About this RNA:
A member of the RNA family "Small nucleolar RNA SNORD17" from Synaphobranchus kaupii, 206 nucleotides long. Gene Ontology terms of the family: nucleolus and RNA processing. The family's consensus secondary structure was predicted with RNAalifold. Rfam describes the family as follows. The snoRNA HBI-43 belongs to the C/D family of snoRNAs, guiding 2'O-ribose methylation at position U3797 of the 28S rRNA. Pseudouridylation in position U3797 is predicted to be guided by the H/ACA snoRNA ACA48. On this family, see Huttenhofer et al., EMBO J 2001: "RNomics: an experimental approach that identifies 201 candidates for novel, small, non-messenger RNAs in mouse". Rfam classes the family as a C/D-box small nucleolar RNA. The source organism's lineage runs through Eukaryota, Opisthokonta, Metazoa, Actinopteri and Synaphobranchus.
RNA sequence: GUGAAAUGAUGAAGGUGUUUAUCCAUUCUCUGAGUACUGCUGGCCUGCUCUCUGCAGCGUUCGUGUCUGUUCUAGACCCGAGUGUUUUGGCUGCCCCCCACUGCGCACCUCCAGUGUUUUACUGGGGGCUGUGUGGCUCGGGGUGGGGGCCAGGGCGGGGCUUGUGGGCAUAGCAAUGGCAAAGACGAGUGUAAACUCCUGAUCAC
Numbered sequence: 001g002u003g004a005a006a007u008g009a010u011g012a013a014g015g016u017g018u019u020u021a022u023c024c025a026u027u028c029u030c031u032g033a034g035u036a037c038u039g040c041u042g043g044c045c046u047g048c049u050c051u052c053u054g055c056a057g058c059g060u061u062c063g064u065g066u067c068u069g070u071u072c073u074a075g076a077c078c079c080g081a082g083u084g085u086u087u088u089g090g091c092u093g094c095c096c097c098c099c100a101c102u103g104c105g106c107a108c109c110u111c112c113a114g115u116g117u118u119u120u121a122c123u124g125g126g127g128g129c130u131g132u133g134u135g136g137c138u139c140g141g142g143g144u145g146g147g148g149g150c151c152a153g154g155g156c157g158g159g160g161c162u163u164g165u166g167g168g169c170a171u172a173g174c175a176a177u178g179g180c181a182a183a184g185a186c187g188a189g190u191g192u193a194a195a196c197u198c199c200u201g202a203u204c205a206c
Base pairs, nucleotide, nucleotide: 010205011204012203017198020195024191025190026189027188028187030184031183034180035179039174040173041172042171043169044168045167046166047165048164050160051159052158053157054156055154056086057085058084059083060082061081062080063079065077066076067075068074089151090150091149092148094146095145103137104135107132108128109127110126111125112124113123114122115121116120
Dot-bracket structure: .........(((....(..(...(((((.((..((...((((((((((.((((((((((((((.((((.....)))).))))))))..((((.((.......((..((((((((((...)))))))))...)..).).......)).))))..).)))))...)))))).))))....))..))..)))))...)..)....))).